[Rfam]
RNA sequence: UGAGUAAGCCAGAUGGUCGCUGCCGCGUAUGCGGGAGAGGAAAGUCCGAGCUCCAUAGGGCAGGGUGCUGGGUAACCCCCAGUGGAGGCGACUCUAAGGAAAGUGCAACAGAGAUAUACCGCCAGAAUCAGCAUUGGCUGAUGAGUGCAGCUUAGCUGCCUGGCAAGGGUGGAAAGGUGAGGUAAGAGCUCACCAGCACACUGGCGACAGUGUGGCUCUGUAAACCCCACCUGGAGCAAGACCAAAUAGGAAAGCAUUUAACGCUGGCCCGGCGUGCUUUCGGGUAAGGUUGCUUGAGCUGUAUGGUAACAUACAGCCUAGAUAGAUGACCAUCAAAUACAGAACUCGGCUUAUAGGCUUACUCAAUUC
Numbered sequence: 001u002g003a004g005u006a007a008g009c010c011a012g013a014u015g016g017u018c019g020c021u022g023c024c025g026c027g028u029a030u031g032c033g034g035g036a037g038a039g040g041a042a043a044g045u046c047c048g049a050g051c052u053c054c055a056u057a058g059g060g061c062a063g064g065g066u067g068c069u070g071g072g073u074a075a076c077c078c079c080c081a082g083u084g085g086a087g088g089c090g091a092c093u094c095u096a097a098g099g100a101a102a103g104u105g106c107a108a109c110a111g112a113g114a115u116a117u118a119c120c121g122c123c124a125g126a127a128u129c130a131g132c133a134u135u136g137g138c139u140g141a142u143g144a145g146u147g148c149a150g151c152u153u154a155g156c157u158g159c160c161u162g163g164c165a166a167g168g169g170u171g172g173a174a175a176g177g178u179g180a181g182g183u184a185a186g187a188g189c190u191c192a193c194c195a196g197c198a199c200a201c202u203g204g205c206g207a208c209a210g211u212g213u214g215g216c217u218c219u220g221u222a223a224a225c226c227c228c229a230c231c232u233g234g235a236g237c238a239a240g241a242c243c244a245a246a247u248a249g250g251a252a253a254g255c256a257u258u259u260a261a262c263g264c265u266g267g268c269c270c271g272g273c274g275u276g277c278u279u280u281c282g283g284g285u286a287a288g289g290u291u292g293c294u295u296g297a298g299c300u301g302u303a304u305g306g307u308a309a310c311a312u313a314c315a316g317c318c319u320a321g322a323u324a325g326a327u328g329a330c331c332a333u334c335a336a337a338u339a340c341a342g343a344a345c346u347c348g349g350c351u352u353a354u355a356g357g358c359u360u361a362c363u364c365a366a367u368u369c
Stems, first nucleotide, its partner, number of pairs: 001365010011354001012334007020037002023034004042352003046349005051236004058270004063232005068082005083097001084095004098227002103225002105221003119168002121164005176194006196216001197214007240291004250281006261275005298317008
RNA: Bacterial RNase P class A
Organism: Caloramator sp. E03